A member of the RNA family "Small nucleolar RNA SNORD79" from Rhinopomastus cyanomelas, 79 nucleotides long. Its Rfam clan is "SNORD74 clan". Lineage of the source: Eukaryota > Teleostomi > Coraciimorphae > Rhinopomastidae > Rhinopomastus. snoRNA U79 or Z22 is found in intron 7 of the gas5 gene in humans and is also present in mice. The family's RNA type in Rfam is C/D-box small nucleolar RNA. On this family, see Galardi et al., Mol Cell Biol 2002: "Purified box C/D snoRNPs are able to reproduce site-specific 2'-O-methylation of target RNA in vitro". Its family is annotated with RNA processing and nucleolus in the Gene Ontology. A search with the family's covariance model found it, with a score of 71 bits. The base pairs follow the family's consensus structure, which was predicted with PFOLD.
RNA sequence: UACUGUUGGUGAUGAGGAAUUGAAAGCAAUGGGAAUCUCUCUGAAAGAGGCUGAGGAGGACUCUUGCACUGAAACAGUA
Numbered sequence: 001u002a003c004u005g006u007u008g009g010u011g012a013u014g015a016g017g018a019a020u021u022g023a024a025a026g027c028a029a030u031g032g033g034a035a036u037c038u039c040u041c042u043g044a045a046a047g048a049g050g051c052u053g054a055g056g057a058g059g060a061c062u063c064u065u066g067c068a069c070u071g072a073a074a075c076a077g078u079a
Base pairs, nucleotide, nucleotide: 001079002078003077004076005075006074007073